[Rfam]
A member of the RNA family "tRNA" from Candidatus Thioglobus autotrophicus, 73 nucleotides long. By type it is a transfer RNA.
RNA sequence: AGGCGAGUGGCUCAACUGGUAGAGUGGCGGUUUCCAAAACCGUUGGUUGGGGGUUCGAGUCCCUCCUCGCCUG
Dot-bracket structure: (((((((..((((........)))).(((((.......))))).....(((((.......)))))))))))).

Pairs were carried over by alignment from the consensus structure, which is taken from published work.
Taxonomically the source falls in Candidatus Thioglobus (Bacteria, Pseudomonadati, Gammaproteobacteria, Pseudothioglobaceae (SeqCode)).